[Rfam]
RNA sequence: UGAAUCCGUGCGGGAGAGUCCCUGGCCGUCCAGGGCGCCGAAGGAGCAAGUCCUCCCUUGAAUCUCUCAGGCACAGUCACCGCGCGGACGAG
Number, nucleotide and partner (000 for none) at each position: 001u000002g000003a000004a000005u000006c087007c086008g085009u084010g083011c082012g081013g080014g000015a000016g000017a000018g000019u000020c035021c034022c033023u032024g000025g000026c000027c000028g000029u000030c000031c000032a023033g022034g021035g020036c000037g072038c071039c070040g068041a067042a000043g000044g066045a065046g064047c000048a000049a000050g059051u000052c000053c000054u000055c000056c000057c000058u000059u050060g000061a000062a000063u000064c046065u045066c044067u041068c040069a000070g039071g038072c037073a000074c000075a000076g000077u000078c000079a000080c013081c012082g011083c010084g009085c008086g007087g006088a000089c000090g000091a000092g000
Record summary:
The record is a 92-nucleotide RNA sequence from Streptomyces sp. DJ, which matches "Glycine riboswitch aptamer" in Rfam. From the family's description: This family represents the bacterial glycine riboswitch.